[Rfam]
RNA sequence: UCAUUUUCCGAGGAGUCAAACAAUUUUAAGUUUGACCAAAUUUAUACAAAAAAUUACUAACAUUUGUGUCUCCAAACAGAUUUAGUAUGAAAAUAUAUUACAUGAUUAAUCUAGUGAUACUUGUUUUGUAACAUAAAUAUUAAUACUAUUUUGUAUAAAUUCGAUCAAAUUUGAAAUUGUUUGACUCCUCGGGAAGCGAG
Numbered sequence: 001u002c003a004u005u006u007u008c009c010g011a012g013g014a015g016u017c018a019a020a021c022a023a024u025u026u027u028a029a030g031u032u033u034g035a036c037c038a039a040a041u042u043u044a045u046a047c048a049a050a051a052a053a054u055u056a057c058u059a060a061c062a063u064u065u066g067u068g069u070c071u072c073c074a075a076a077c078a079g080a081u082u083u084a085g086u087a088u089g090a091a092a093a094u095a096u097a098u099u100a101c102a103u104g105a106u107u108a109a110u111c112u113a114g115u116g117a118u119a120c121u122u123g124u125u126u127u128g129u130a131a132c133a134u135a136a137a138u139a140u141u142a143a144u145a146c147u148a149u150u151u152u153g154u155a156u157a158a159a160u161u162c163g164a165u166c167a168a169a170u171u172u173g174a175a176a177u178u179g180u181u182u183g184a185c186u187c188c189u190c191g192g193g194a195a196g197c198g199a200g
Stems, first nucleotide, its partner, number of pairs: 005195005011189016031169005045155007055145002059141002062138007072128001074126006
Annotation
A member of the RNA family "MIR1435 microRNA precursor family" from Panicum miliaceum, 200 nucleotides long. The source organism's lineage runs through Eukaryota, Streptophytina, Tracheophyta, Panicoideae and Panicum sect. Panicum. Rfam links the family to the GO terms RISC complex and miRNA-mediated post-transcriptional gene silencing. A search with the family's covariance model found it, with a score of 98 bits.